[Rfam]
RNA sequence: UUAUAAAGCAUUGCACCCAGGGUCUGUUUCACCCAGACAUUGUACCUGGAGCUUUUCUGUUUGAUUAAAACUUGCCA
Numbered sequence: 001u002u003a004u005a006a007a008g009c010a011u012u013g014c015a016c017c018c019a020g021g022g023u024c025u026g027u028u029u030c031a032c033c034c035a036g037a038c039a040u041u042g043u044a045c046c047u048g049g050a051g052c053u054u055u056u057c058u059g060u061u062u063g064a065u066u067a068a069a070a071c072u073u074g075c076c077a
Stems, first nucleotide, its partner, number of pairs: 005055005017049004022038005
Rfam assigns this 77-nucleotide RNA sequence to the family "U1A polyadenylation inhibition element (PIE)". On this family, see Varani et al., Nat Struct Biol 2000: "The NMR structure of the 38 kDa U1A protein - PIE RNA complex reveals the basis of cooperativity in regulation of polyadenylation by human U1A protein". From the family's description: This family represents the U1A polyadenylation inhibition element (PIE).